[Rfam]
Rfam assigns this 96-nucleotide RNA sequence from Clostridium sp. chh4-2 to the family "Purine riboswitch aptamer".
Rfam's curators write: Riboswitches are metabolite binding domains within certain messenger RNAs that serve as precision sensors for their corresponding targets.
Taxonomically the source falls in Clostridium (Bacteria, Bacillati, Bacillota, Eubacteriales).
A reference for the family is Mandal et al. (2003), "Riboswitches Control Fundamental Biochemical Pathways in Bacillus subtilis and Other Bacteria", Cell.
The base pairs follow the family's consensus structure, which is taken from published work.

RNA sequence: UAAUAAAUCGUGAACCAAUUAUGUAUAUCCUGGGGAUUGGCCCAGAGUCUCUACCAACUACCGAAAGAGUUGACUACAUAUUCUAUGUAGCCAGCU
Numbered sequence: 001u002a003a004u005a006a007a008u009c010g011u012g013a014a015c016c017a018a019u020u021a022u023g024u025a026u027a028u029c030c031u032g033g034g035g036a037u038u039g040g041c042c043c044a045g046a047g048u049c050u051c052u053a054c055c056a057a058c059u060a061c062c063g064a065a066a067g068a069g070u071u072g073a074c075u076a077c078a079u080a081u082u083c084u085a086u087g088u089a090g091c092c093a094g095c096u
Base pairs, nucleotide, nucleotide: 018082020080021079022078023077024076025075030045031044032043033042034041055072056071057070058069059068